[Rfam]
RNA sequence: ACCAUCGACGAUGACGAACUGGUCUCCUACAUCCUCGCCGGGCUCGACUACGACUACAACCCGAUCGUCACGUCCCUCACCGCCAGGAUCGAACCCCUCAGCGUGGGAGAGGCGUACUCCCAACUACUCGCAUUCGAGC
Numbered sequence: 001a002c003c004a005u006c007g008a009c010g011a012u013g014a015c016g017a018a019c020u021g022g023u024c025u026c027c028u029a030c031a032u033c034c035u036c037g038c039c040g041g042g043c044u045c046g047a048c049u050a051c052g053a054c055u056a057c058a059a060c061c062c063g064a065u066c067g068u069c070a071c072g073u074c075c076c077u078c079a080c081c082g083c084c085a086g087g088a089u090c091g092a093a094c095c096c097c098u099c100a101g102c103g104u105g106g107g108a109g110a111g112g113c114g115u116a117c118u119c120c121c122a123a124c125u126a127c128u129c130g131c132a133u134u135c136g137a138g139c
Stems, first nucleotide, its partner, number of pairs: 005137004089108002093104002
Dot-bracket structure: ....((((................................................................................((..((........))..)).........................))))..
RNA: Small nucleolar RNA Z247